[Rfam]
Rfam assigns this 69-nucleotide RNA sequence from Haloprofundus sp. MHR1 to the family "S15-Halobacteria ribosomal protein leader".

RNA sequence: GUGGGAACAGCACGGCCGCAACUCUGACUCGCCCGGGUUCUCUCUCCGGGCUUGGGAUUGCGGAAGUGC
Numbered sequence: 001g002u003g004g005g006a007a008c009a010g011c012a013c014g015g016c017c018g019c020a021a022c023u024c025u026g027a028c029u030c031g032c033c034c035g036g037g038u039u040c041u042c043u044c045u046c047c048g049g050g051c052u053u054g055g056g057a058u059u060g061c062g063g064a065a066g067u068g069c
Base pairs, nucleotide, nucleotide: 010069011068012067013066016063017062018061019060020059021058024056025055031051032050033049034048035047036046037045

A reference for the family is Eckert and Weinberg (2020), "Discovery of 20 novel ribosomal leader candidates in bacteria and archaea", BMC Microbiol. Taxonomically the source falls in Haloprofundus (Archaea, Methanobacteriota, Halobacteria, Haloferacaceae). It is annotated as a cis-regulatory leader.